[Rfam]
Shown here is a 69-nucleotide sequence from Leptonychotes weddellii, a member of the family "Small nucleolar RNA U2-30". Rfam 15.1 lists 664 matches to the family in 136 species. Its family is annotated with nucleolus and RNA processing in the Gene Ontology. NCBI's taxonomy places the organism under Eukaryota, Bilateria, Phocidae, Lobodontini, Leptonychotes. The match comes from Rfam's covariance-model search (80 bits). The literature on the family includes a 2004 paper in Curr Biol by Tycowski et al., "Guide RNAs with 5' Caps and Novel Box C/D snoRNA-like Domains for Modification of snRNAs in Metazoa".

RNA sequence: GAGCAAUGAUGGAAUGGUUUUCUACUGACCUUUAUAACUAUGAAGGUUUCUAUACUUGAUCUGAACUCA
Numbered sequence: 001g002a003g004c005a006a007u008g009a010u011g012g013a014a015u016g017g018u019u020u021u022c023u024a025c026u027g028a029c030c031u032u033u034a035u036a037a038c039u040a041u042g043a044a045g046g047u048u049u050c051u052a053u054a055c056u057u058g059a060u061c062u063g064a065a066c067u068c069a
Base pairs, nucleotide, nucleotide: 001068002067003066013033014032016030017029018028019027
Dot-bracket structure: (((.........((.((((.......)))).))................................))).